[Rfam]
RNA: transfer-messenger RNA
Organism: Pigmentiphaga sp. NML030171
RNA sequence: GGGGCCGUACCGGUUUCGACGGGGGUCGCGAAGCAGCACAGGGCAUGUCGAGCACCAGUAAGCUCGUUAAACCACUGGAACGCAAAUAAACGCCAACGACGAGCGUUUCGCUCUCGCCGCUUAAGCGGUGAGCCGCUGCACCGAUCUGUCCUUGGGUCGGGCGGAGGAAGGGCAACUUUCCUAAGGAUCCCUGUCUAGGGCCAUAAACCCCCGAAGCAGCCUGAUCCUGAACCGCAGCAGUGUCAUUCUCAAGGAAUCGGUAUGAACUGGGGUCACACGGUUCAUGCUUAAACUACGUGAAUCGCUGUGUGCCGGCCUGUCGGUUGGCUAAGCACACGGUUAAAUCCAAAUAAAUCGACUACACAUGUAGAACUGUCUGUAGAGGGCUUCCGGACGCGGGUUCAAUUCCCGCCGGCUCCACCA
Numbered sequence: 001g002g003g004g005c006c007g008u009a010c011c012g013g014u015u016u017c018g019a020c021g022g023g024g025g026u027c028g029c030g031a032a033g034c035a036g037c038a039c040a041g042g043g044c045a046u047g048u049c050g051a052g053c054a055c056c057a058g059u060a061a062g063c064u065c066g067u068u069a070a071a072c073c074a075c076u077g078g079a080a081c082g083c084a085a086a087u088a089a090a091c092g093c094c095a096a097c098g099a100c101g102a103g104c105g106u107u108u109c110g111c112u113c114u115c116g117c118c119g120c121u122u123a124a125g126c127g128g129u130g131a132g133c134c135g136c137u138g139c140a141c142c143g144a145u146c147u148g149u150c151c152u153u154g155g156g157u158c159g160g161g162c163g164g165a166g167g168a169a170g171g172g173c174a175a176c177u178u179u180c181c182u183a184a185g186g187a188u189c190c191c192u193g194u195c196u197a198g199g200g201c202c203a204u205a206a207a208c209c210c211c212c213g214a215a216g217c218a219g220c221c222u223g224a225u226c227c228u229g230a231a232c233c234g235c236a237g238c239a240g241u242g243u244c245a246u247u248c249u250c251a252a253g254g255a256a257u258c259g260g261u262a263u264g265a266a267c268u269g270g271g272g273u274c275a276c277a278c279g280g281u282u283c284a285u286g287c288u289u290a291a292a293c294u295a296c297g298u299g300a301a302u303c304g305c306u307g308u309g310u311g312c313c314g315g316c317c318u319g320u321c322g323g324u325u326g327g328c329u330a331a332g333c334a335c336a337c338g339g340u341u342a343a344a345u346c347c348a349a350a351u352a353a354a355u356c357g358a359c360u361a362c363a364c365a366u367g368u369a370g371a372a373c374u375g376u377c378u379g380u381a382g383a384g385g386g387c388u389u390c391c392g393g394a395c396g397c398g399g400g401u402u403c404a405a406u407u408c409c410c411g412c413c414g415g416c417u418c419c420a421c422c423a
Stems, first nucleotide, its partner, number of pairs: 001419007020392008033380004038376004044367005049066005055078005113132008134242006149255001259288009271302001273300004304340009315328003319359004324352001396412005